[Rfam]
RNA sequence: UGCAGGUAUUUUAUGAUUAAGAAGCAACUGCCUCUUUUAUAGAUUGUGUAUUAAGAA
Numbered sequence: 001u002g003c004a005g006g007u008a009u010u011u012u013a014u015g016a017u018u019a020a021g022a023a024g025c026a027a028c029u030g031c032c033u034c035u036u037u038u039a040u041a042g043a044u045u046g047u048g049u050a051u052u053a054a055g056a057a
Stems, first nucleotide, its partner, number of pairs: 019036004024031002
Dot-bracket structure: ..................((((.((....)).)))).....................
This 57-nucleotide RNA from Tetracentron sinense belongs to the Rfam family "Plastid-rps18 3UTR RNA". The source organism's lineage runs through Eukaryota, Tracheophyta, Mesangiospermae, Trochodendrales and Tetracentron. For this family Rfam cites "Retrograde signaling in plants: A critical review focusing on the GUN pathway and beyond" (Richter et al., Plant Commun, 2023). Rfam 15.1 lists 1,462 matches to the family in 409 species. Rfam's curators write: Plastid rps18 is a non-coding RNA (ncRNA) present in plastids.